RNA sequence: AGUCUCUUUCCCAAGGAGAAUGGGCACUGUCGAUUGCAGCAUCUGGAAACUGAUCAUGGGGCUAACUUGAGACUCAGGCGACGCCUCCAUCACAGCAAAUGUACUGUGGUCGUGACAGUGAGACCUGCCACAUUU
Numbered sequence: 001a002g003u004c005u006c007u008u009u010c011c012c013a014a015g016g017a018g019a020a021u022g023g024g025c026a027c028u029g030u031c032g033a034u035u036g037c038a039g040c041a042u043c044u045g046g047a048a049a050c051u052g053a054u055c056a057u058g059g060g061g062c063u064a065a066c067u068u069g070a071g072a073c074u075c076a077g078g079c080g081a082c083g084c085c086u087c088c089a090u091c092a093c094a095g096c097a098a099a100u101g102u103a104c105u106g107u108g109g110u111c112g113u114g115a116c117a118g119u120g121a122g123a124c125c126u127g128c129c130a131c132a133u134u135u
Base pairs, nucleotide, nucleotide: 002062003061004060006058008056021045022044023043024042027039075127076126077125078124088114089113090112092110093109
RNA: Small nucleolar RNA SNORA1
Organism: Carlito syrichta